[Rfam]
Shown here is a 119-nucleotide RNA from Ruminococcaceae bacterium D16, a member of the family "TPP riboswitch aptamer (THI element)". NCBI's taxonomy places the organism under Bacteria, Bacillati, Clostridia, Eubacteriales, Oscillospiraceae.
RNA sequence: AAUCGAGCACAGGGGCGCUGGAAGCUUUUCCGGCUGAGAUGCAAAGGCGAAUAGGCCGCCUUCGGUCCCUUAAACCUGAUCCGGGUAAUGCCGGCGUAGGAAGUGAACGGAAUGUGGAC
Numbered sequence: 001a002a003u004c005g006a007g008c009a010c011a012g013g014g015g016c017g018c019u020g021g022a023a024g025c026u027u028u029u030c031c032g033g034c035u036g037a038g039a040u041g042c043a044a045a046g047g048c049g050a051a052u053a054g055g056c057c058g059c060c061u062u063c064g065g066u067c068c069c070u071u072a073a074a075c076c077u078g079a080u081c082c083g084g085g086u087a088a089u090g091c092c093g094g095c096g097u098a099g100g101a102a103g104u105g106a107a108c109g110g111a112a113u114g115u116g117g118a119c
Stems, first nucleotide, its partner, number of pairs: 008105003011070004016064001017034005041063001043061001075100004081094004
Dot-bracket structure: .......(((((((.((((((........)))))......(.(.................).))..))))....((((..((((......))))..))))..)))..............